This 96-nucleotide RNA belongs to the Rfam family "Selenocysteine transfer RNA". The family's consensus secondary structure is taken from published work. The match comes from Rfam's covariance-model search (56 bits). For this family Rfam cites "Eukaryotic selenocysteine tRNA has the 9/4 secondary structure" (Mizutani and Goto, FEBS Lett, 2000).
RNA sequence: GUGGGGGGUAUCUGACCCUGGUGGGCAGCACGGGCUUCAAACCCGAUGGAUGGCUAGUUGACUAGUUGUUGGUAGGUUCGAUUCCUACACCUUCUC
Numbered sequence: 001g002u003g004g005g006g007g008g009u010a011u012c013u014g015a016c017c018c019u020g021g022u023g024g025g026c027a028g029c030a031c032g033g034g035c036u037u038c039a040a041a042c043c044c045g046a047u048g049g050a051u052g053g054c055u056a057g058u059u060g061a062c063u064a065g066u067u068g069u070u071g072g073u074a075g076g077u078u079c080g081a082u083u084c085c086u087a088c089a090c091c092u093u094c095u096c
Stems, first nucleotide, its partner, number of pairs: 001096001003094005012028003016025003029048001031045004050069005073087004